[Rfam]
RNA: DUF3800-X RNA
RNA sequence: GGGGAGGUAAGGUCGGCGAUAGCCCCUCCGGCCGAAACGAUGAGGCUCACGUAAGUGGGGUGGGAUGGAGUAGGCCGGGGCUCCCC
Numbered sequence: 001g002g003g004g005a006g007g008u009a010a011g012g013u014c015g016g017c018g019a020u021a022g023c024c025c026c027u028c029c030g031g032c033c034g035a036a037a038c039g040a041u042g043a044g045g046c047u048c049a050c051g052u053a054a055g056u057g058g059g060g061u062g063g064g065a066u067g068g069a070g071u072a073g074g075c076c077g078g079g080g081c082u083c084c085c086c
Base pairs, nucleotide, nucleotide: 001086002085003084004083005082026080027079028078029077030076031075032074033073046059047058048057049056050055